Record summary:
Shown here is a 47-nucleotide sequence from Mycobacterium sp. UM_WGJ, a member of the family "L31-Actinobacteria ribosomal protein leader". The family is grouped with related families in Rfam's "Ribosomal Protein L31 Leader clan".
[Rfam]
Nucleotides: 047
Base pairs, nucleotide, nucleotide: 003047004046005045007042008041009040010039015036016035017034018033019032020031021030022029023028
Number, partner (000 for none) and nucleotide at each position: 001000c002000a003047g004046g005045u006000u007042c008041c009040g010039g011000u012000u013000c014000a015036c016035g017034u018033c019032c020031g021030c022029c023028c024000c025000g026000c027000a028023g029022g030021g031020c032019g033018g034017g035016c036015g037000a038000c039010c040009c041008g042007g043000c044000g045005a046004c047003c